[Rfam]
RNA sequence: AGCCGAUUCUCGAUCUCUUUGGUUGUACAAAGUGGUAUGAGUACUAUAAGAGGCAAUGCAUACCGCUUUUCAACUGAAGGAAUCGAGUGUUUGGCGG
Numbered sequence: 001a002g003c004c005g006a007u008u009c010u011c012g013a014u015c016u017c018u019u020u021g022g023u024u025g026u027a028c029a030a031a032g033u034g035g036u037a038u039g040a041g042u043a044c045u046a047u048a049a050g051a052g053g054c055a056a057u058g059c060a061u062a063c064c065g066c067u068u069u070u071c072a073a074c075u076g077a078a079g080g081a082a083u084c085g086a087g088u089g090u091u092u093g094g095c096g097g
Base pairs, nucleotide, nucleotide: 002095003094004093005092009087010086011085012084013083014082016080017079018078019077020076021075022074023073024072025071029069030068031067032066033065034064035063036062037061038060039059040057
Annotation: A member of the RNA family "mir-244 microRNA precursor family" from Caenorhabditis japonica, 97 nucleotides long. Pairs were carried over by alignment from the consensus structure, which was predicted with RNAalifold. The organism belongs to Caenorhabditis, within Eukaryota.